The record is a 155-nucleotide sequence from Pararobbsia alpina, which matches "Group II catalytic intron D1-D4-7" in Rfam. On this family, see Bonen and Vogel, Trends Genet 2001: "The ins and outs of group II introns". The base pairs follow the family's consensus structure. Group II introns are found in rRNA, tRNA and mRNA of organelles in fungi, plants and protists, and also in mRNA in bacteria. Taxonomically the source falls in Pararobbsia (Bacteria, Pseudomonadati, Betaproteobacteria, Burkholderiales).
Nucleotides: 155
Stems, first nucleotide, its partner, number of pairs: 002019006028069005033060002036057002039054006083097006098125004108115002129148005
Number, partner (000 for none) and nucleotide at each position: 001000c002019c003018u004017g005016c006015u007014a008000u009000g010000c011000g012000a013000c014007u015006a016005g017004c018003a019002g020000u021000a022000g023000c024000c025000u026000a027000g028069g029068a030067a031066g032065a033060c034059a035000u036057g037056c038000g039054u040053c041052a042051c043050u044049g045000g046000u047000a048000a049044c050043g051042g052041u053040g054039g055000g056037g057036u058000u059034u060033g061000a062000a063000g064000c065032u066031c067030u068029u069028c070000u071000g072000a073000c074000a075000a076000u077000g078000a079000a080000g081000c082000c083097c084096c085095c086094g087093g088092a089000c090000g091000u092088u093087u094086c095085g096084g097083g098125c099124a100123g101122a102000u103000g104000u105000g106000c107000g108115c109114c110000g111000u112000g113000a114109g115108g116000u117000g118000c119000c120000c121000g122101u123100u124099u125098g126000g127000a128000g129148a130147c131146u132145c133144c134000u135000a136000g137000c138000a139000g140000c141000g142000a143000u144133g145132g146131g147130g148129u149000c150000g151000a152000g153000g154000a155000g